[Rfam]
RNA: tRNA
RNA sequence: GCCCCGGUAGGGUAGAGGAUAUCCUUGGAGCCUCCGGAGCUUUAGACCUGGGUUCAAGUCCCAGCCGGGGCG
Number, nucleotide and partner (000 for none) at each position: 001g071002c070003c069004c068005c067006g066007g065008u000009a000010g025011g024012g023013u000014a000015g000016a000017g000018g000019a000020u000021a000022u000023c012024c011025u010026u000027g043028g042029a041030g040031c039032c000033u000034c000035c000036g000037g000038a000039g031040c030041u029042u028043u027044a000045g000046a000047c000048c064049u063050g062051g061052g060053u000054u000055c000056a000057a000058g000059u000060c052061c051062c050063a049064g048065c007066c006067g005068g004069g003070g002071c001072g000